RNA sequence: AUGAGAACAAGGGGAGAGACUGCCAAAGAUGUCGGCAGCGCCGAAGGAGCAAAUAACGAAAGUUGUGAAUCUCUCAGGCAAAAAGACUCUUGUUUGACG
Numbered sequence: 001a002u003g004a005g006a007a008c009a010a011g012g013g014g015a016g017a018g019a020c021u022g023c024c025a026a027a028g029a030u031g032u033c034g035g036c037a038g039c040g041c042c043g044a045a046g047g048a049g050c051a052a053a054u055a056a057c058g059a060a061a062g063u064u065g066u067g068a069a070u071c072u073c074u075c076a077g078g079c080a081a082a083a084a085g086a087c088u089c090u091u092g093u094u095u096g097a098c099g
Stems, first nucleotide, its partner, number of pairs: 006094008020038004040079003043075002047073003053066002
RNA: Glycine riboswitch aptamer
Organism: Bacillus sp. FJAT-49736